[Rfam]
RNA sequence: AUUAAUAAUGAAAAUAAGGGCAGUUUUUUCUGCUUUAUGAUUGCUGAUUCGUGGCAAGACAGACAGGCAUAGGGUGGUCGUUCCCCACCCUGUGUUCAUCGCCACUCAUCAAUCUUCAGGGUAGCUUCGCUACCCUUUUUUUACCGGAGUUUG
Number, nucleotide and partner (000 for none) at each position: 001a000002u000003u000004a000005a000006u000007a000008a000009u000010g000011a000012a152013a151014a150015u000016a000017a000018g000019g034020g033021c032022a031023g030024u000025u000026u000027u000028u000029u000030c023031u022032g021033c020034u019035u120036u119037a000038u118039g117040a113041u112042u111043g110044c000045u000046g107047a106048u000049u000050c000051g000052u000053g000054g000055c000056a000057a000058g096059a095060c094061a000062g000063a000064c000065a000066g000067g000068c000069a093070u092071a091072g090073g089074g088075u087076g086077g085078u000079c000080g000081u000082u000083c000084c000085c077086c076087a075088c074089c073090c072091u071092g070093u069094g060095u059096u058097c000098a000099u000100c000101g000102c000103c000104a000105c000106u047107c046108a000109u000110c043111a042112a041113u040114c000115u000116u000117c039118a038119g036120g035121g000122u000123a000124g000125c000126u000127u000128c000129g000130c000131u000132a000133c000134c000135c000136u000137u000138u000139u000140u000141u000142u000143a000144c000145c000146g000147g000148a000149g000150u014151u013152u012153g000
Rfam assigns this 153-nucleotide RNA sequence from Prodigiosinella confusarubida to the family "sroC RNA". Rfam links the family to the GO terms regulation of RNA stability and RNA binding. The match comes from Rfam's covariance-model search (54 bits). Rfam classes the family as a small RNA.